[Rfam]
RNA sequence: GCAACCUCAAACUGGCGCACGGCAACGUGGUGGUUUUCAGGUCGCUGCUCGGCAUCUCCUGGAUGUGGUUCUUCGGUGCGGUGUUCCUGAGCCAGUUUCCGAGCUUCGCCAAGGAAGUGCUG
Numbered sequence: 001g002c003a004a005c006c007u008c009a010a011a012c013u014g015g016c017g018c019a020c021g022g023c024a025a026c027g028u029g030g031u032g033g034u035u036u037u038c039a040g041g042u043c044g045c046u047g048c049u050c051g052g053c054a055u056c057u058c059c060u061g062g063a064u065g066u067g068g069u070u071c072u073u074c075g076g077u078g079c080g081g082u083g084u085u086c087c088u089g090a091g092c093c094a095g096u097u098u099c100c101g102a103g104c105u106u107c108g109c110c111a112a113g114g115a116a117g118u119g120c121u122g
Base pairs, nucleotide, nucleotide: 010049012047014045017042018041021038022037024035025034026033051121052120053119054118055117057115058114059113060112062110063105067099068098071095072094077089078088080087081086

Annotation:
Burkholderia RNA 11: a 122-nucleotide sequence. Rfam's curators write: Co-purified with Hfq, expression confirmed by Northern blot. Gene Ontology term of the family: protein binding. It is annotated as a small RNA.